[Rfam]
RNA sequence: GACGAAUAUUACUAUCAGACUCGUAUAACCCCGGCGAUGGGGCCGGGGGUCUCUACCAGGUGACCGGAAUCACCUCGGCUACGAGGGUGAGGGGCAGCUGG
Numbered sequence: 001g002a003c004g005a006a007u008a009u010u011a012c013u014a015u016c017a018g019a020c021u022c023g024u025a026u027a028a029c030c031c032c033g034g035c036g037a038u039g040g041g042g043c044c045g046g047g048g049g050u051c052u053c054u055a056c057c058a059g060g061u062g063a064c065c066g067g068a069a070u071c072a073c074c075u076c077g078g079c080u081a082c083g084a085g086g087g088u089g090a091g092g093g094g095c096a097g098c099u100g101g
Base pairs, nucleotide, nucleotide: 020085021084022083023082024081025080029048030047031046032045033044034043035042057077058075059074060073061072062071063070
Dot-bracket structure: ...................((((((...(((((((......)))))))........(((((((......)))))).)..))))))................
Purine riboswitch aptamer: a 101-nucleotide sequence from Neomoorella thermoacetica. A search with the family's covariance model found it, with a score of 57 bits. The family's consensus secondary structure is taken from published work. NCBI's taxonomy places the organism under Bacteria, Bacillati, Bacillota, Clostridia, Neomoorella.